The family of this 115-nucleotide sequence from Heyndrickxia shackletonii is "BsrF". On this family, see Saito et al., Gene 2008: "Novel small RNA-encoding genes in the intergenic regions of Bacillus subtilis". The base pairs follow the family's consensus structure, which was predicted with WAR. Taxonomically the source falls in Heyndrickxia (Bacteria, Bacillati, Bacillota, Caryophanales).

RNA sequence: GCGAUGAGCUAUUUGCGUAAGUCGGAGGCAAAGCUUUCGAGCUAACGUAUGAAUGUGGUCAUACGGCACUUCGCCGCAAAACGUAAGGAAAGACGCCUGACGAAUUUCAGGCGUC
Numbered sequence: 001g002c003g004a005u006g007a008g009c010u011a012u013u014u015g016c017g018u019a020a021g022u023c024g025g026a027g028g029c030a031a032a033g034c035u036u037u038c039g040a041g042c043u044a045a046c047g048u049a050u051g052a053a054u055g056u057g058g059u060c061a062u063a064c065g066g067c068a069c070u071u072c073g074c075c076g077c078a079a080a081a082c083g084u085a086a087g088g089a090a091a092g093a094c095g096c097c098u099g100a101c102g103a104a105u106u107u108c109a110g111g112c113g114u115c
Stems, first nucleotide, its partner, number of pairs: 013079005023073005033042002046065002049062003092115009